[Rfam]
Small nucleolar RNA U83B: a 90-nucleotide sequence from Fregata magnificens. A reference for the family is Jady and Kiss (2000), "Characterisation of the U83 and U84 small nucleolar RNAs: two novel 2'-O-ribose methylation guide RNAs that lack complementarities to ribosomal RNAs", Nucleic Acids Res. Pairs were carried over by alignment from the consensus structure.
RNA sequence: GCAGUUCAGUGAUGAGGCCUGGAACAAGUGCUGAGUGUUAUCUGACACCCGUGGGGAGUGGCUGUGCACUGUGUUUCUUCUGAGAGCAGC
Number, nucleotide and partner (000 for none) at each position: 001g090002c089003a000004g087005u086006u000007c000008a000009g000010u000011g000012a000013u000014g000015a000016g000017g000018c000019c000020u000021g000022g000023a000024a000025c000026a000027a000028g000029u000030g000031c000032u000033g000034a000035g000036u000037g000038u000039u000040a000041u000042c000043u000044g000045a000046c000047a000048c000049c000050c000051g000052u000053g000054g000055g000056g000057a000058g000059u000060g000061g000062c000063u000064g000065u000066g000067c000068a000069c000070u000071g000072u000073g000074u000075u000076u000077c000078u000079u000080c000081u000082g000083a000084g000085a000086g005087c004088a000089g002090c001
The match comes from Rfam's covariance-model search (40 bits).